[Rfam]
RNA: Picornavirus internal ribosome entry site (IRES)
Organism: Dicipivirus acadici
RNA sequence: ACAGGUUUUGUUAGUAUGGAUACGAAGAGCCGACUGCCGUUGGAGUGUAUCCUCCGGACCCGUGAAUGCGGCUAACCCUAACCCUGGAUCAAGUGCUCACAAACCAGUGAGUGGCUUGUCGUAACGCGCAAGUCUGGGAUGGGACCGACUACUUUCGGUGUUCCGUGUUUCUAUUUAUUUUAUCAAUAAAGUUUUAUGGUGACAAUCUUGUGAUAUUAAGAUAUAAAGCUUUUAUCCUUUUGUUU
Numbered sequence: 001a002c003a004g005g006u007u008u009u010g011u012u013a014g015u016a017u018g019g020a021u022a023c024g025a026a027g028a029g030c031c032g033a034c035u036g037c038c039g040u041u042g043g044a045g046u047g048u049a050u051c052c053u054c055c056g057g058a059c060c061c062g063u064g065a066a067u068g069c070g071g072c073u074a075a076c077c078c079u080a081a082c083c084c085u086g087g088a089u090c091a092a093g094u095g096c097u098c099a100c101a102a103a104c105c106a107g108u109g110a111g112u113g114g115c116u117u118g119u120c121g122u123a124a125c126g127c128g129c130a131a132g133u134c135u136g137g138g139a140u141g142g143g144a145c146c147g148a149c150u151a152c153u154u155u156c157g158g159u160g161u162u163c164c165g166u167g168u169u170u171c172u173a174u175u176u177a178u179u180u181u182a183u184c185a186a187u188a189a190a191g192u193u194u195u196a197u198g199g200u201g202a203c204a205a206u207c208u209u210g211u212g213a214u215a216u217u218a219a220g221a222u223a224u225a226a227a228g229c230u231u232u233u234a235u236c237c238u239u240u241u242g243u244u245u
Stems, first nucleotide, its partner, number of pairs: 001009001003007001014021002029193001037191001040188001045180001055165003060158003069147003076143003083138006090118004094113007120126002201244005